Shown here is a 71-nucleotide sequence from Mucilaginibacter pedocola, a member of the family "tRNA". The family's consensus secondary structure is taken from published work. About the family: Transfer RNA (tRNA) molecules are approximately 80 nucleotides in length. It is annotated as a transfer RNA.

[Rfam]
RNA sequence: UUUCGCAUAGUGUAACGGUAGCACAUCAGACUCUGACUCUGCUAGUAGUGGUUCGAAUCCAUUUGCGAAAA
Numbered sequence: 001u002u003u004c005g006c007a008u009a010g011u012g013u014a015a016c017g018g019u020a021g022c023a024c025a026u027c028a029g030a031c032u033c034u035g036a037c038u039c040u041g042c043u044a045g046u047a048g049u050g051g052u053u054c055g056a057a058u059c060c061a062u063u064u065g066c067g068a069a070a071a
Stems, first nucleotide, its partner, number of pairs: 001070007010024004027041004047063005